[Rfam]
RNA: Hepatitis C virus J7880 RNA
RNA sequence: GCUAAGGCGAAGGCAUCCACAGUGAAGGCUAAGCUGCUAUCCAUCGAGGAAGCUUGCCAACUGACGCCCCCACAUUCGGCCAAAUCCAAGUUUGGCUAUGGGGCGAAAGAUGUCCGGAGCCUA
Numbered sequence: 001g002c003u004a005a006g007g008c009g010a011a012g013g014c015a016u017c018c019a020c021a022g023u024g025a026a027g028g029c030u031a032a033g034c035u036g037c038u039a040u041c042c043a044u045c046g047a048g049g050a051a052g053c054u055u056g057c058c059a060a061c062u063g064a065c066g067c068c069c070c071c072a073c074a075u076u077c078g079g080c081c082a083a084a085u086c087c088a089a090g091u092u093u094g095g096c097u098a099u100g101g102g103g104c105g106a107a108a109g110a111u112g113u114c115c116g117g118a119g120c121c122u123a
Stems, first nucleotide, its partner, number of pairs: 006120001012114006022065002025062001028057002035050001037048002068103004074097001076095002078092003